[Rfam]
RNA sequence: AAGGUUUGCAAAUGGAUUCCCGAGAGGAUCUGCUUUGUAAGAAGAGCGGAGAAGCCUUGUAACCGAAACUAUCAAAGGGGGAACAAAGAAUG
Number, nucleotide and partner (000 for none) at each position: 001a000002a000003g000004g000005u000006u000007u000008g000009c000010a000011a000012a000013u000014g000015g000016a000017u083018u082019c081020c080021c079022g000023a000024g058025a057026g056027g055028a000029u050030c049031u048032g047033c046034u045035u044036u043037g000038u000039a000040a000041g000042a000043a036044g035045a034046g033047c032048g031049g030050a029051g000052a000053a000054g000055c027056c026057u025058u024059g000060u000061a000062a000063c078064c077065g000066a000067a000068a000069c000070u000071a000072u000073c000074a000075a000076a000077g064078g063079g021080g020081g019082a018083a017084c000085a000086a000087a000088g000089a000090a000091u000092g000